[Rfam]
RNA sequence: ACCAUCUUUUUCUUGGGAUUGUGCUACUAUCCAAUGAGUGCAUAGUGAGGGCAGUACUGCUAAUGCCUAAACAACACACUUGCAUCAACUAGAGCUUUGCUUUACACUGGUGCAGUUAAAAAAAAA
Dot-bracket structure: ......(((.....)))...(((..(((.(((.....((.....))..))).)))..))).....................((((((..((((((...))))))...)))))).............

This 126-nucleotide sequence from Callithrix jacchus belongs to the Rfam family "U4atac minor spliceosomal RNA".
By type it is a spliceosomal small nuclear RNA.
Taxonomically the source falls in Callithrix (Eukaryota, Teleostomi, Tetrapoda, Mammalia).
For this family Rfam cites "Evolutionary conservation of minor U12-type spliceosome between plants and humans" (Lorkovic et al., RNA, 2005).
Rfam 15.1 lists 1,648 matches to the family in 818 species.
U4atac is an essential component of the minor U12-type spliceosome complex which is required for removal of the rarer class of eukaryotic introns (AT-AC, U12-type).
It scores 74 bits against the family's covariance model.
Gene Ontology terms of the family: pre-mRNA 5'-splice site binding, mRNA 5'-splice site recognition and U4atac snRNP.
The family's consensus secondary structure is taken from published work.